[Rfam]
RNA sequence: UGUUAAAAAUUUCUUCCAUUUCUACUGUUAGAAAUUGAUGCGGCUGACGGAAAAUCAAAUAGUUACACGUGGUGUACCACGUGUACUUCAUUUUAACGUAUAGGGAUUGAUUUUUAAUAGUAGAAAUUGAUAAAAUUUUAAAAA
Numbered sequence: 001u002g003u004u005a006a007a008a009a010u011u012u013c014u015u016c017c018a019u020u021u022c023u024a025c026u027g028u029u030a031g032a033a034a035u036u037g038a039u040g041c042g043g044c045u046g047a048c049g050g051a052a053a054a055u056c057a058a059a060u061a062g063u064u065a066c067a068c069g070u071g072g073u074g075u076a077c078c079a080c081g082u083g084u085a086c087u088u089c090a091u092u093u094u095a096a097c098g099u100a101u102a103g104g105g106a107u108u109g110a111u112u113u114u115u116a117a118u119a120g121u122a123g124a125a126a127u128u129g130a131u132a133a134a135a136u137u138u139u140a141a142a143a144a
Stems, first nucleotide, its partner, number of pairs: 003142002006139007015130002018127009028117006
Overview:
This 144-nucleotide RNA sequence from Gossypium lobatum belongs to the Rfam family "MIR7502 microRNA precursor family". Its family is annotated with RISC complex and miRNA-mediated post-transcriptional gene silencing in the Gene Ontology. Taxonomically the source falls in Gossypium (Eukaryota, eudicotyledons, Gunneridae, Pentapetalae).